Rfam assigns this 129-nucleotide sequence from Eleutherodactylus coqui to the family "Small nucleolar RNA SNORA77".

RNA sequence: GCAGGCUCACUCUGUGCUCAACUGCAAAACUCCAGUUUCAGUGCUUUUUCGGUCUGCUAUAUAAACACCAUGAUCAUAUGUGCACUUUCUCUAUUGUAGAAAAGUUGUGUUUGAUGAUGGGAUAUUAAU
Numbered sequence: 001g002c003a004g005g006c007u008c009a010c011u012c013u014g015u016g017c018u019c020a021a022c023u024g025c026a027a028a029a030c031u032c033c034a035g036u037u038u039c040a041g042u043g044c045u046u047u048u049u050c051g052g053u054c055u056g057c058u059a060u061a062u063a064a065a066c067a068c069c070a071u072g073a074u075c076a077u078a079u080g081u082g083c084a085c086u087u088u089c090u091c092u093a094u095u096g097u098a099g100a101a102a103a104g105u106u107g108u109g110u111u112u113g114a115u116g117a118u119g120g121g122a123u124a125u126u127a128a129u
Stems, first nucleotide, its partner, number of pairs: 001057006014044005020038001022035003068120004073115004078110003084105004
Gene Ontology terms of the family: RNA processing and nucleolus.
ACA63 (SNORA77) is a member of the H/ACA class of snoRNAs that guide the sites of modification of uridines to pseudouridines. This snoRNA was identified by computational screening and its expression in mouse experimentally verified by Northern blot and primer extension analysis. ACA63 is proposed to guide the pseudouridylation of 18S rRNA U814.
Rfam classes the family as an H/ACA-box small nucleolar RNA.
The match comes from Rfam's covariance-model search (50 bits).